A member of the RNA family "transfer-messenger RNA" from Vibrio agarilyticus, 366 nucleotides long. Bacterial tmRNA, also known as 10Sa RNA or SsrA, is named for its dual tRNA and mRNA-like properties. Rfam links the family to the GO term RNA catabolic process.
RNA sequence: GGGGCUGAUUUAGGAUUCGACAGGAAUUUUGAAGUCUGAGGUGCAUGCCGUGGUGCGGUUGGCCACGUAAAAAGCCGCAAAAAAAUAGUCGCAAACGACGAAAACUACGCACUAGCAGCUUAAUACCCUGCUCAGAGCUCUCUCGCCCUAGCUUCCGCACGUAAGACGGGGACCAACGAGGGAUCAAACCCAAACGCGCUAGCCCGGAUUCUCCCGCUUGAGAGAUGAACGGCGAAUUCUAAUUCAAGCUAGCUAUUCACUGGCGUGUCAGUUCGCAGGUGGUAGUGAAAUUAAAGACUGACUAAGCAUGUAGUACCAAUGAUGAAUGAUUUUUGGACGGGGGUUCAAAUCCCCCCAGCUCCACCA
Numbered sequence: 001g002g003g004g005c006u007g008a009u010u011u012a013g014g015a016u017u018c019g020a021c022a023g024g025a026a027u028u029u030u031g032a033a034g035u036c037u038g039a040g041g042u043g044c045a046u047g048c049c050g051u052g053g054u055g056c057g058g059u060u061g062g063c064c065a066c067g068u069a070a071a072a073a074g075c076c077g078c079a080a081a082a083a084a085a086u087a088g089u090c091g092c093a094a095a096c097g098a099c100g101a102a103a104a105c106u107a108c109g110c111a112c113u114a115g116c117a118g119c120u121u122a123a124u125a126c127c128c129u130g131c132u133c134a135g136a137g138c139u140c141u142c143u144c145g146c147c148c149u150a151g152c153u154u155c156c157g158c159a160c161g162u163a164a165g166a167c168g169g170g171g172a173c174c175a176a177c178g179a180g181g182g183a184u185c186a187a188a189c190c191c192a193a194a195c196g197c198g199c200u201a202g203c204c205c206g207g208a209u210u211c212u213c214c215c216g217c218u219u220g221a222g223a224g225a226u227g228a229a230c231g232g233c234g235a236a237u238u239c240u241a242a243u244u245c246a247a248g249c250u251a252g253c254u255a256u257u258c259a260c261u262g263g264c265g266u267g268u269c270a271g272u273u274c275g276c277a278g279g280u281g282g283u284a285g286u287g288a289a290a291u292u293a294a295a296g297a298c299u300g301a302c303u304a305a306g307c308a309u310g311u312a313g314u315a316c317c318a319a320u321g322a323u324g325a326a327u328g329a330u331u332u333u334u335g336g337a338c339g340g341g342g343g344u345u346c347a348a349a350u351c352c353c354c355c356c357a358g359c360u361c362c363a364c365c366a
Base pairs, nucleotide, nucleotide: 001362002361003360004359005358006357007356021335022334023333024332025331026330027329028328030326034323035322036321040317041316042315044310045309046308047307048306049067050066051065052064053063054079055078056077057076058075059074060073112135113134115131116130117129118128139183140182141181142180143179144178146171147170148169149168152165153164154163157199158198160196161195162194203232204231216250218248219247252286253285254284255283256282258281259280260279261278263276264275265274267302268301269300270299271298272297273296339355340354341353342352343351